[Rfam]
RNA sequence: UGUUGAUGAUGACUAAUCCUAAGGCUUGUUUCUCAAAACAUUCGCAGUGGCCGCCUAAGAGCUUUCACCUUCGCCAGGCUUGAGAGUUUGUGCUGCUUCAAUUCUUCCUCGGAUGUCUGAAACC
Numbered sequence: 001u002g003u004u005g006a007u008g009a010u011g012a013c014u015a016a017u018c019c020u021a022a023g024g025c026u027u028g029u030u031u032c033u034c035a036a037a038a039c040a041u042u043c044g045c046a047g048u049g050g051c052c053g054c055c056u057a058a059g060a061g062c063u064u065u066c067a068c069c070u071u072c073g074c075c076a077g078g079c080u081u082g083a084g085a086g087u088u089u090g091u092g093c094u095g096c097u098u099c100a101a102u103u104c105u106u107c108c109u110c111g112g113a114u115g116u117c118u119g120a121a122a123c124c
Stems, first nucleotide, its partner, number of pairs: 002123003061087006

Record summary: Shown here is a 124-nucleotide RNA sequence from Citrus unshiu, a member of the family "Small nucleolar RNA SNORD14". Gene Ontology terms of the family: nucleolus and RNA processing. NCBI's taxonomy places the organism under Eukaryota, Viridiplantae, Embryophyta, Gunneridae, Citrus. Rfam's curators write: U14 small nucleolar RNA (U14 snoRNA) is required for early cleavages of eukaryotic precursor rRNAs. In yeasts, this molecule possess a stem-loop region (known as the Y-domain) which is essential for function. A similar structure, but with a different consensus sequence, is found in plants, but is absent in vertebrates. The match comes from Rfam's covariance-model search (70 bits).